RNA sequence: CCUGAUGCUUAGGAGGCGACACUCCACCAUGGAUCACUCCCCUGUGAGGAACUUCUGUCUUCACGCGGAAAGCGCCUAGCCAUGGCGUUAGUACGAGUGUCGUGCAGCCUCCAGGACCCCCCCUCCCGGGAGAGCCAUAGUGGUCUGCGGAACCGGUGAGUACACCGGAAUCGCUGGGGUGACCGGGUCCUUUCUUGGAACAACCCGCUCAAUACCCAGAAAUUUGGGCGUGCCCCCGCGAGAUCACUAGCCGAGUAGUGUUGGGUCGCGAAAGGCCUUGUGGUACUGCCUGAUAGGGUGCUUGCGAGUGCCCCGGGAGGUCUCGUAGACCGUGCAACAUGAGCACACUUC
Dot-bracket structure: ...(.(.(....).).).......................((((.((((.....((((...(((.((...((((((.......))))))....)).)))....))))))))))))......(((((((((.(.((..(((((((((((((..((((((....))))))(((..(((((..((.(((((((......)))....)))).))....)))))..))).(((....))))))).)))))))))))).((((.((..(((((......)))))..)).))))((((....))))((........)))))))))))...........((((.......)))).....
The family of this 351-nucleotide RNA sequence from Orthohepacivirus hominis is "Hepatitis C virus internal ribosome entry site". Rfam's curators put it in the seed alignment. The literature on the family includes a 2016 paper in Mol Cell by Pirakitikulr et al., "The Coding Region of the HCV Genome Contains a Network of Regulatory RNA Structures". Clan: IRES1 clan.